Overview:
This 54-nucleotide sequence from Streptomyces sp. AA1529 belongs to the Rfam family "L17-Actino-Proteobacteria ribosomal protein leader". A reference for the family is Eckert and Weinberg (2020), "Discovery of 20 novel ribosomal leader candidates in bacteria and archaea", BMC Microbiol. Rfam classes the family as a cis-regulatory leader.
RNA sequence: CCCGGUACCUCGCACGGCCGGGACUGCCUCCGGUGCCUGACACGGCCGGUGCAG
Numbered sequence: 001c002c003c004g005g006u007a008c009c010u011c012g013c014a015c016g017g018c019c020g021g022g023a024c025u026g027c028c029u030c031c032g033g034u035g036c037c038u039g040a041c042a043c044g045g046c047c048g049g050u051g052c053a054g
Base pairs, nucleotide, nucleotide: 001022002021003020004019005018006017024054025053026052028051030049031048032047033046034045